[Rfam]
RNA sequence: GAGAAGUGGGGGCUCCUUUCAGCCUAAAACAGCUUCAAGGAUUUUAGUCUUAUCUAAAAGCUCUUGUUGAUAUCUGUUCUGGACUGAAGGGAGCUCCUAAUUCUU
Numbered sequence: 001g002a003g004a005a006g007u008g009g010g011g012g013c014u015c016c017u018u019u020c021a022g023c024c025u026a027a028a029a030c031a032g033c034u035u036c037a038a039g040g041a042u043u044u045u046a047g048u049c050u051u052a053u054c055u056a057a058a059a060g061c062u063c064u065u066g067u068u069g070a071u072a073u074c075u076g077u078u079c080u081g082g083a084c085u086g087a088a089g090g091g092a093g094c095u096c097c098u099a100a101u102u103c104u105u
Base pairs, nucleotide, nucleotide: 007099008098009097010096011095012094013093014092015091016090017089018088021085022084024082025081026080028078029077030076031075032074
Shown here is a 105-nucleotide RNA sequence from Durio zibethinus, a member of the family "MIR319 microRNA precursor family". The family has 11 seed sequences and 168 matches in Rfam 15.1. The source organism's lineage runs through Eukaryota, Viridiplantae, Streptophytina, Embryophyta and Durio. It scores 79 bits against the family's covariance model.